[Rfam]
RNA sequence: CCUCUGGAAAGAGGGGACCGGCAGGUUCCCCGCCGAAGGUGAAAGCGGCCCGCACACCGCGGGACGUGAAACUCUCAGGCGCCGAUGACAGAGG
Numbered sequence: 001c002c003u004c005u006g007g008a009a010a011g012a013g014g015g016g017a018c019c020g021g022c023a024g025g026u027u028c029c030c031c032g033c034c035g036a037a038g039g040u041g042a043a044a045g046c047g048g049c050c051c052g053c054a055c056a057c058c059g060c061g062g063g064a065c066g067u068g069a070a071a072c073u074c075u076c077a078g079g080c081g082c083c084g085a086u087g088a089c090a091g092a093g094g
Stems, first nucleotide, its partner, number of pairs: 001094006013030004032080003035076002039074001041072001045067002
This 94-nucleotide RNA from Thermomonospora umbrina belongs to the Rfam family "Glycine riboswitch aptamer".
Taxonomically the source falls in Thermomonospora (Bacteria, Actinomycetes, Streptosporangiales, Thermomonosporaceae).
The match comes from Rfam's covariance-model search (45 bits).
The base pairs follow the family's consensus structure.